[Rfam]
RNA sequence: GUUGAGAGACAAGAUUAGCCCCCGUUAUGUUGCCGGUUUACACCGAACAAUGUGCGGGGUUUUCU
Numbered sequence: 001g002u003u004g005a006g007a008g009a010c011a012a013g014a015u016u017a018g019c020c021c022c023c024g025u026u027a028u029g030u031u032g033c034c035g036g037u038u039u040a041c042a043c044c045g046a047a048c049a050a051u052g053u054g055c056g057g058g059g060u061u062u063u064c065u
Stems, first nucleotide, its partner, number of pairs: 017061004022057004028052005035043001

Background
The family of this 65-nucleotide sequence from Kluyvera genomosp. 3 is "rdlD antitoxin". The organism belongs to Kluyvera, within Bacteria.